[Rfam]
RNA sequence: UAUAUAUAUAAUAACUUAUUCUAUAGCCACUUUGAGUAACGAUAAUUACUAUGUUAAUUUACGAGAUUAUAGUAACUCCAUAUUAAGUGGUUUAUUAUAACGUUAUGGUAAUAUCUCCAUAUGUUACAGUAACCUAACUAUUGUAAAUAUGUAUUGAUAUUAUCGUAAAUUAGUAUAUAAAAUUAUCGUAAAUAGAGGUGGCUACAAAAUAACUUUUAUAUAUAUA
Numbered sequence: 001u002a003u004a005u006a007u008a009u010a011a012u013a014a015c016u017u018a019u020u021c022u023a024u025a026g027c028c029a030c031u032u033u034g035a036g037u038a039a040c041g042a043u044a045a046u047u048a049c050u051a052u053g054u055u056a057a058u059u060u061a062c063g064a065g066a067u068u069a070u071a072g073u074a075a076c077u078c079c080a081u082a083u084u085a086a087g088u089g090g091u092u093u094a095u096u097a098u099a100a101c102g103u104u105a106u107g108g109u110a111a112u113a114u115c116u117c118c119a120u121a122u123g124u125u126a127c128a129g130u131a132a133c134c135u136a137a138c139u140a141u142u143g144u145a146a147a148u149a150u151g152u153a154u155u156g157a158u159a160u161u162a163u164c165g166u167a168a169a170u171u172a173g174u175a176u177a178u179a180a181a182a183u184u185a186u187c188g189u190a191a192a193u194a195g196a197g198g199u200g201g202c203u204a205c206a207a208a209a210u211a212a213c214u215u216u217u218a219u220a221u222a223u224a225u226a
Stems, first nucleotide, its partner, number of pairs: 001226011013215002016212005022206001024204010037191001039189009050177013065164003069160003074154001081145003087141006093131004098126006107116002
Shown here is a 226-nucleotide RNA sequence from Sorghum bicolor, a member of the family "MIR6217 microRNA precursor family". Lineage of the source: Eukaryota > Embryophyta > Poales > Andropogonodae > Sorghum.